[Rfam]
Source information
SAM-III riboswitch aptamer (SMK box): a 91-nucleotide sequence from Ruoffia halotolerans. It scores 61 bits against the family's covariance model.

RNA sequence: AUUCGUUACAAAUCAAAAGUCCCGAUAGGGUUCACUUGUACUAGAGUGAAUAUGCCUUGUAACCAAAUAAUAUAGUGGGGGAGACAUUAUG
Number, nucleotide and partner (000 for none) at each position: 001a000002u000003u000004c000005g000006u000007u000008a000009c000010a000011a000012a000013u000014c000015a000016a000017a000018a000019g000020u082021c081022c080023c079024g000025a000026u000027a057028g056029g055030g000031u050032u049033c048034a047035c046036u045037u044038g000039u000040a000041c000042u000043a000044g037045a036046g035047u034048g033049a032050a031051u000052a000053u000054g000055c029056c028057u027058u000059g000060u000061a000062a000063c078064c077065a000066a000067a000068u000069a000070a000071u000072a000073u000074a000075g000076u000077g064078g063079g023080g022081g021082a020083g000084a000085c000086a000087u000088u000089a000090u000091g000

Taxonomically the source falls in Ruoffia (Bacteria, Bacilli, Lactobacillales, Aerococcaceae). The literature on the family includes a 2008 paper in Biochem Cell Biol by Wang and Breaker, "Riboswitches that sense S-adenosylmethionine and S-adenosylhomocysteine".